[Rfam]
RNA sequence: UCUUAGUAGUUACGGGUUUCGUGGCUUCGUAACCGAGAUUUACUGGUUCGUUGUCGACGAAACCUGCAAUACCUAGGA
Number, nucleotide and partner (000 for none) at each position: 001u078002c077003u076004u075005a074006g073007u000008a000009g000010u000011u000012a000013c066014g065015g064016g063017u062018u061019u060020c059021g058022u000023g000024g000025c000026u000027u000028c000029g000030u000031a048032a047033c046034c045035g000036a000037g000038a000039u000040u000041u000042a000043c000044u000045g034046g033047u032048u031049c000050g000051u000052u000053g000054u000055c000056g000057a000058c021059g020060a019061a018062a017063c016064c015065u014066g013067c000068a000069a000070u000071a000072c000073c006074u005075a004076g003077g002078a001

This 78-nucleotide RNA from Diabrotica balteata belongs to the Rfam family "mir-981 microRNA precursor family". Its family is annotated with RISC complex and miRNA-mediated post-transcriptional gene silencing in the Gene Ontology. A reference for the family is Berezikov et al. (2010), "Evolutionary flux of canonical microRNAs and mirtrons in Drosophila", Nat Genet. It scores 63 bits against the family's covariance model.